Notes: Rfam assigns this 84-nucleotide RNA from Lentivirus humimdef1 to the family "HIV gag stem loop 3 (GSL3)". From the family's description: This family consists of several HIV gag stem loop 3 (GSL3) sequences. GSL3 is known to direct specific packaging of HIV-1 genomic RNA. Deletion of GSL3 leads to decreases in both viral RNA packaging and dimerisation. Gene Ontology term of the family: viral RNA genome packaging. The family's RNA type in Rfam is cis-regulatory element.
[Rfam]
RNA sequence: GGCCAGGGGGACGCAAAAAAUAUAGACUAAAACAUCUAGUAUGGGCAAGCAGGGAGCUGGAAAAAUUCGCAAUUAACCCUGGUC
Numbered sequence: 001g002g003c004c005a006g007g008g009g010g011a012c013g014c015a016a017a018a019a020a021u022a023u024a025g026a027c028u029a030a031a032a033c034a035u036c037u038a039g040u041a042u043g044g045g046c047a048a049g050c051a052g053g054g055a056g057c058u059g060g061a062a063a064a065a066u067u068c069g070c071a072a073u074u075a076a077c078c079c080u081g082g083u084c
Stems, first nucleotide, its partner, number of pairs: 001084008